Glycine riboswitch aptamer: a 100-nucleotide sequence from Nocardioides luteus. Lineage of the source: Bacteria > Actinomycetes > Propionibacteriales > Nocardioidaceae > Nocardioides. The match comes from Rfam's covariance-model search (40 bits).
RNA sequence: CGACCUCUGGAAAGUCAGGAUCCGAUGAUCCUGCACCCACGGUGCAAACCGCCCCCACCGGGCGGUGAAGCUCUCAGGUAGCGAUGACAGAGCGGGGAGG
Numbered sequence: 001c002g003a004c005c006u007c008u009g010g011a012a013a014g015u016c017a018g019g020a021u022c023c024g025a026u027g028a029u030c031c032u033g034c035a036c037c038c039a040c041g042g043u044g045c046a047a048a049c050c051g052c053c054c055c056c057a058c059c060g061g062g063c064g065g066u067g068a069a070g071c072u073c074u075c076a077g078g079u080a081g082c083g084a085u086g087a088c089a090g091a092g093c094g095g096g097g098a099g100g
Stems, first nucleotide, its partner, number of pairs: 005092005016033004035079003039074001042073001044071001048066006
Dot-bracket structure: ....(((((......((((..........)))).(((.(..(.(...((((((.......))))))....).))..)))........)))))........